[Rfam]
RNA sequence: GAUUCAAUAGUAUGGUAAGAAAGAAAUAGAUGAAUCUUUCUUACCAUACUAUCUAUCUCUUAGUCUAUAAAGUUCUACUC
Numbered sequence: 001g002a003u004u005c006a007a008u009a010g011u012a013u014g015g016u017a018a019g020a021a022a023g024a025a026a027u028a029g030a031u032g033a034a035u036c037u038u039u040c041u042u043a044c045c046a047u048a049c050u051a052u053c054u055a056u057c058u059c060u061u062a063g064u065c066u067a068u069a070a071a072g073u074u075c076u077a078c079u080c
Stems, first nucleotide, its partner, number of pairs: 007052011019040006
This 80-nucleotide sequence from Olea europaea belongs to the Rfam family "Plastid-psbM 3UTR RNA". Rfam classes the family as a cis-regulatory element. For this family Rfam cites "Retrograde signaling in plants: A critical review focusing on the GUN pathway and beyond" (Richter et al., Plant Commun, 2023).